[Rfam]
Nucleotides: 120
Base pairs, nucleotide, nucleotide: 001120002119003118005116006115007114008113009112010111011110012109013108014107015106017104018103019102020101021100022099023098024097025096026095027094028093030091031090033088034087035086036085037084039082040081041080042079043078044077046075047074
Number, partner (000 for none) and nucleotide at each position: 001120g002119u003118a004000a005116a006115g007114g008113a009112c010111c011110a012109a013108c014107g015106u016000a017104c018103u019102a020101c021100c022099a023098u024097g025096u026095a027094a028093a029000c030091c031090a032000u033088c034087u035086u036085c037084a038000a039082a040081c041080c042079a043078u044077a045000a046075u047074a048000u049000u050000u051000c052000a053000a054000u055000u056000u057000u058000u059000c060000a061000u062000a063000u064000u065000a066000u067000u068000c069000c070000u071000u072000a073000u074047u075046a076000c077044u078043a079042u080041g081040g082039u083000c084037u085036g086035a087034a088033g089000u090031u091030g092000c093028u094027u095026u096025a097024c098023a099022u100021g101020g102019u103018a104017g105000c106015a107014c108013g109012u110011u111010g112009g113008u114007c115006c116005u117000c118003u119002a120001c
Rfam assigns this 120-nucleotide sequence from Drosophila pseudoobscura to the family "mir-2513 microRNA precursor family". Rfam's curators put it in the seed alignment. The source organism's lineage runs through Eukaryota, Opisthokonta, Schizophora, Drosophilidae and Sophophora. Rfam links the family to the GO terms miRNA-mediated post-transcriptional gene silencing and RISC complex.